The family of this 170-nucleotide RNA from Ruminococcus sp. YE71 is "FMN riboswitch aptamer (RFN element)". The organism belongs to Ruminococcus, within Bacteria.
[Rfam]
RNA sequence: AAUAUGUUUCAAGGGGUGGUGAAAUUCCACACCGGCGGUAAAAGUCCGCAAACUCGAAGCAGUGCCGAACACGGCGCUGUGACAGAGCCGAAUCGGUGAAAUUCCGAUACCGACGGUUGGGUCUGAUCUUUUCGGUCGGAUCCAGAUAGUCCGGAUGGAAGAAACGACAG
Numbered sequence: 001a002a003u004a005u006g007u008u009u010c011a012a013g014g015g016g017u018g019g020u021g022a023a024a025u026u027c028c029a030c031a032c033c034g035g036c037g038g039u040a041a042a043a044g045u046c047c048g049c050a051a052a053c054u055c056g057a058a059g060c061a062g063u064g065c066c067g068a069a070c071a072c073g074g075c076g077c078u079g080u081g082a083c084a085g086a087g088c089c090g091a092a093u094c095g096g097u098g099a100a101a102u103u104c105c106g107a108u109a110c111c112g113a114c115g116g117u118u119g120g121g122u123c124u125g126a127u128c129u130u131u132u133c134g135g136u137c138g139g140a141u142c143c144a145g146a147u148a149g150u151c152c153g154g155a156u157g158g159a160a161g162a163a164a165c166g167a168c169a170g
Stems, first nucleotide, its partner, number of pairs: 005166006017029003033112002035049004044110002053087002092108005114153003

The family has 146 seed sequences and 6,230 matches in Rfam 15.1.